[Rfam]
RNA sequence: UACUUAUAAAGAGAAGCGGAGGGACUGGCCCUUUGAUGCUUCAGCAACCCCACUUAGGUGGAAGGUGCUAAUUCCAGCAGGCUUCAGCCUGGGAGAUAAGAG
Numbered sequence: 001u002a003c004u005u006a007u008a009a010a011g012a013g014a015a016g017c018g019g020a021g022g023g024a025c026u027g028g029c030c031c032u033u034u035g036a037u038g039c040u041u042c043a044g045c046a047a048c049c050c051c052a053c054u055u056a057g058g059u060g061g062a063a064g065g066u067g068c069u070a071a072u073u074c075c076a077g078c079a080g081g082c083u084u085c086a087g088c089c090u091g092g093g094a095g096a097u098a099a100g101a102g
Stems, first nucleotide, its partner, number of pairs: 001102001003100005013042005021031003025077004043069004048065002050061004073094001078091005
Dot-bracket structure: (.(((((.....(((((...(((.[[[[)))......)))))((((.((((((....))))..))))))...(]]]](((((....)))))..).))))).)
RNA: SAM riboswitch aptamer (S box leader)